[Rfam]
RNA sequence: GGUUGGGCGUAAGCUUUCAAGGAACGAGGUUUUUUCUGGGGUGAGAAAAA
Numbered sequence: 001g002g003u004u005g006g007g008c009g010u011a012a013g014c015u016u017u018c019a020a021g022g023a024a025c026g027a028g029g030u031u032u033u034u035u036c037u038g039g040g041g042u043g044a045g046a047a048a049a050a
Stems, first nucleotide, its partner, number of pairs: 003020003006015003031050007
Source information: Rfam assigns this 50-nucleotide sequence from Vagococcus salmoninarum to the family "Na+ riboswitch aptamer (DUF1646)". It scores 47 bits against the family's covariance model. Its family is annotated with sodium ion binding and regulation of gene expression in the Gene Ontology. The literature on the family includes a 2022 paper in Nat Chem Biol by White et al., "Na(+) riboswitches regulate genes for diverse physiological processes in bacteria".